[Rfam]
The family of this 181-nucleotide sequence from Burkholderia sp. Leaf177 is "FMN riboswitch aptamer (RFN element)".
RNA sequence: GUACGUCUUCAGGGCGGGGUGUAAUUCCCCACCGGCGGUAUGCGUUGGGUUUCCAUGACCGACGCGAGCCCGCGAGCGCCCGUGAGUUUUGAUCGUGAUCUUCACGAAUCAAAUCACGGGGUCAGCAGAUCUGGUGCGAUGCCAGAGCCGACGGUCAUAGUCCGGAUGAGAGAAGAUGUGC
Numbered sequence: 001g002u003a004c005g006u007c008u009u010c011a012g013g014g015c016g017g018g019g020u021g022u023a024a025u026u027c028c029c030c031a032c033c034g035g036c037g038g039u040a041u042g043c044g045u046u047g048g049g050u051u052u053c054c055a056u057g058a059c060c061g062a063c064g065c066g067a068g069c070c071c072g073c074g075a076g077c078g079c080c081c082g083u084g085a086g087u088u089u090u091g092a093u094c095g096u097g098a099u100c101u102u103c104a105c106g107a108a109u110c111a112a113a114u115c116a117c118g119g120g121g122u123c124a125g126c127a128g129a130u131c132u133g134g135u136g137c138g139a140u141g142c143c144a145g146a147g148c149c150g151a152c153g154g155u156c157a158u159a160g161u162c163c164g165g166a167u168g169a170g171a172g173a174a175g176a177u178g179u180g181c
Stems, first nucleotide, its partner, number of pairs: 003179008017029003031161002033150002035073004068148002076126002130146005152164003
It scores 107 bits against the family's covariance model.